Nucleotides: 129
Base pairs, nucleotide, nucleotide: 011026012025013024014023015022016021028058029057030056036051037050038049039047040046094116095115096114097113098112099111100110101109102108103107
Number, partner (000 for none) and nucleotide at each position: 001000u002000u003000g004000u005000a006000a007000a008000a009000g010000c011026a012025g013024a014023g015022g016021c017000a018000c019000c020000c021016g022015c023014u024013u025012c026011u027000c028058a029057c030056c031000u032000g033000u034000a035000u036051g037050a038049c039047g040046c041000a042000u043000u044000a045000a046040g047039c048000u049038g050037u051036u052000a053000c054000c055000a056030g057029g058028u059000c060000a061000c062000a063000a064000c065000g066000a067000u068000a069000c070000g071000a072000a073000u074000a075000u076000a077000u078000a079000a080000a081000u082000g083000u084000u085000c086000g087000g088000u089000c090000a091000a092000g093000g094116u095115g096114u097113g098112g099111g100110u101109g102108u103107a104000u105000u106000g107103u108102g109101c110100a111099c112098u113097c114096a115095c116094a117000c118000c119000u120000u121000u122000u123000u124000u125000g126000u127000u128000a129000u